Rfam assigns this 131-nucleotide RNA sequence from Pistricoccus aurantiacus to the family "ALIL pseudoknot". The family's consensus secondary structure is taken from published work.
RNA sequence: CGCGUAUUUUGCCCAGGCGGAGUGCGACGGGCAGGCCGCCUGCGCCGCGGCAAGUGAUGAUCGAGUUCAUCGAUGAUCACCGGGAGUCGUACGGGGUCGAGCCGAUCUGCCGUGUCCUGCCGAUUGCCCCG
Number, nucleotide and partner (000 for none) at each position: 001c000002g000003c000004g000005u000006a000007u000008u000009u000010u000011g000012c000013c000014c000015a000016g046017g045018c044019g043020g000021a000022g000023u000024g000025c000026g000027a000028c000029g000030g000031g000032c000033a000034g000035g000036c000037c000038g000039c000040c000041u000042g000043c019044g018045c017046c016047g000048c000049g000050g000051c000052a000053a000054g000055u000056g000057a000058u000059g000060a000061u000062c000063g000064a000065g000066u000067u000068c000069a000070u000071c000072g000073a000074u000075g000076a000077u000078c000079a000080c000081c000082g000083g000084g000085a000086g000087u000088c000089g000090u000091a000092c131093g130094g129095g128096g127097u000098c000099g000100a000101g000102c000103c126104g125105a000106u123107c122108u000109g120110c119111c000112g117113u000114g000115u000116c000117c112118u000119g110120c109121c000122g107123a106124u000125u104126g103127c096128c095129c094130c093131g092
Rfam classes the family as a cis-regulatory element. For this family Rfam cites "Apical loop-internal loop RNA pseudoknots: a new type of stimulator of -1 translational frameshifting in bacteria" (Mazauric et al., J Biol Chem, 2008).